A member of the RNA family "c-di-GMP-I riboswitch aptamer" from Anaerosporomusa subterranea, 88 nucleotides long.
It scores 67 bits against the family's covariance model.
The base pairs follow the family's consensus structure, which is taken from published work.
RNA sequence: AUUUUCAUAUGGCAAACUUGUUGAAAGAUAAGGACGCAAAGCAAUGGGUCUAAGGACGAAUUAACGUCUAUGAUGCCAAGCCGCCAAU
Numbered sequence: 001a002u003u004u005u006c007a008u009a010u011g012g013c014a015a016a017c018u019u020g021u022u023g024a025a026a027g028a029u030a031a032g033g034a035c036g037c038a039a040a041g042c043a044a045u046g047g048g049u050c051u052a053a054g055g056a057c058g059a060a061u062u063a064a065c066g067u068c069u070a071u072g073a074u075g076c077c078a079a080g081c082c083g084c085c086a087a088u
Stems, first nucleotide, its partner, number of pairs: 012037002017032006041081002045078003048074003055068004